The family of this 134-nucleotide RNA from Erinaceus europaeus is "Small nucleolar RNA SNORA70". Gene Ontology terms of the family: RNA processing and nucleolus. NCBI's taxonomy places the organism under Eukaryota, Dipnotetrapodomorpha, Tetrapoda, Boreoeutheria, Erinaceus. From the family's description: snoRNA U70 seems to be exclusive to mammals and is a member of the H/ACA class of snoRNA which contain H (ANANNA) and ACA box motifs. H/ACA box snoRNAs are involved in the conversion of uridines to pseudouridines (5-ribosyluracil) a constituent of structural RNAs (transfer, ribosomal, small nuclear, and small nucleolar). Pairs were carried over by alignment from the consensus structure, which was predicted with PFOLD.
RNA sequence: AUGCUGCCAAUUAAUCUGACCAUGCUGCCUUCCCUAUGGUGCCCCAUGUGUAAUGGCUGCCAACAGCAGCAUCCUGGGUGGUGUAUGCAACCUGUUGCUUAUACAGGCUGCCCUAAGGGACCCUGGAGACAGCC
Numbered sequence: 001a002u003g004c005u006g007c008c009a010a011u012u013a014a015u016c017u018g019a020c021c022a023u024g025c026u027g028c029c030u031u032c033c034c035u036a037u038g039g040u041g042c043c044c045c046a047u048g049u050g051u052a053a054u055g056g057c058u059g060c061c062a063a064c065a066g067c068a069g070c071a072u073c074c075u076g077g078g079u080g081g082u083g084u085a086u087g088c089a090a091c092c093u094g095u096u097g098c099u100u101a102u103a104c105a106g107g108c109u110g111c112c113c114u115a116a117g118g119g120a121c122c123c124u125g126g127a128g129a130c131a132g133c134c
Stems, first nucleotide, its partner, number of pairs: 002052003019047001025041001027040002077122003088110002091107003